[Rfam]
RNA sequence: CAAUCUGGAGAGAGGCGCCGCACGGCGCCCACCGAAGGAGAAAUCUCAGCCGCCCCGGCGGUUGAGAGAAGCUCUCAGGUAACCGCGACAGAUGG
Numbered sequence: 001c002a003a004u005c006u007g008g009a010g011a012g013a014g015g016c017g018c019c020g021c022a023c024g025g026c027g028c029c030c031a032c033c034g035a036a037g038g039a040g041a042a043a044u045c046u047c048a049g050c051c052g053c054c055c056c057g058g059c060g061g062u063u064g065a066g067a068g069a070a071g072c073u074c075u076c077a078g079g080u081a082a083c084c085g086c087g088a089c090a091g092a093u094g095g
Base pairs, nucleotide, nucleotide: 001095003093004092005091006090007089014029015028016027017026031080032079033078034076035075038074039073040072044067045066046065047064048063049062050061051060